[Rfam]
RNA sequence: GGGUCAAUAAUGAGGACUUUAUAUUGCCUUGAGGAGUGGUGAUGACUUAAAUAUCAUGUACAAUGGCAUGAUGCUGAGACCC
Numbered sequence: 001g002g003g004u005c006a007a008u009a010a011u012g013a014g015g016a017c018u019u020u021a022u023a024u025u026g027c028c029u030u031g032a033g034g035a036g037u038g039g040u041g042a043u044g045a046c047u048u049a050a051a052u053a054u055c056a057u058g059u060a061c062a063a064u065g066g067c068a069u070g071a072u073g074c075u076g077a078g079a080c081c082c
Stems, first nucleotide, its partner, number of pairs: 001082004005076002008073002

Shown here is an 82-nucleotide RNA from Carlito syrichta, a member of the family "Small nucleolar RNA SNORD115".
By type it is a C/D-box small nucleolar RNA.
The source organism's lineage runs through Eukaryota, Eumetazoa, Gnathostomata, Eutheria and Carlito.
Pairs were carried over by alignment from the consensus structure, which was predicted with PFOLD.
Rfam links the family to the GO terms RNA processing and nucleolus.